Iron response element I: a 35-nucleotide RNA from Carlito syrichta. Pairs were carried over by alignment from the consensus structure, which is taken from published work. A reference for the family is Hentze et al. (1987), "Identification of the iron-responsive element for the translational regulation of human ferritin mRNA", Science.
Nucleotides: 035
Base pairs, nucleotide, nucleotide: 001035002034003033004032006031007030008029010028012027013026014025015024016023017021
Number, partner (000 for none) and nucleotide at each position: 001035c002034u003033g004032u005000c006031u007030c008029u009000u010028g011000c012027u013026u014025c015024a016023a017021c018000a019000g020000u021017g022000u023016u024015u025014g026013g027012a028010u029008g030007g031006g032004g033003u034002a035001g

A search with the family's covariance model found it, with a score of 44 bits.